RNA: PyrR binding site
RNA sequence: AGAUCCUUUUAAAUCAGUCCAGAGAGGCUGGCAAAGGUCAAGAUAUAAGCCAAAAAUUAUAUUUUUUAAUUUUUUGGCUAACUAUGUCAGCUUUAACCUUCAAACCAUUCUUUCUGGUAUGAAGGUUUUUUUUA
Numbered sequence: 001a002g003a004u005c006c007u008u009u010u011a012a013a014u015c016a017g018u019c020c021a022g023a024g025a026g027g028c029u030g031g032c033a034a035a036g037g038u039c040a041a042g043a044u045a046u047a048a049g050c051c052a053a054a055a056a057u058u059a060u061a062u063u064u065u066u067u068a069a070u071u072u073u074u075u076g077g078c079u080a081a082c083u084a085u086g087u088c089a090g091c092u093u094u095a096a097c098c099u100u101c102a103a104a105c106c107a108u109u110c111u112u113u114c115u116g117g118u119a120u121g122a123a124g125g126u127u128u129u130u131u132u133u134a
Stems, first nucleotide, its partner, number of pairs: 005037005014031006048079009058069001061066001095127008104118003